[Rfam]
The family of this 83-nucleotide sequence from Subdoligranulum variabile is "ZMP/ZTP riboswitch aptamer (pfl RNA motif)". A search with the family's covariance model found it, with a score of 58 bits. The organism belongs to Subdoligranulum variabile, within Bacteria.
RNA sequence: UAGCAGGCUGCUGACCGACGGAUUUGUGGGGAUUACCACAGGGAAGGCAGCCGAAGAAAAAGCCGACCGUCUGGGCUGCAUGC
Numbered sequence: 001u002a003g004c005a006g007g008c009u010g011c012u013g014a015c016c017g018a019c020g021g022a023u024u025u026g027u028g029g030g031g032a033u034u035a036c037c038a039c040a041g042g043g044a045a046g047g048c049a050g051c052c053g054a055a056g057a058a059a060a061a062g063c064c065g066a067c068c069g070u071c072u073g074g075g076c077u078g079c080a081u082g083c
Base pairs, nucleotide, nucleotide: 006052007051008050009049010048011047012046015043016042017071018070019069020068021067026039027038028037029036061077062076063075064074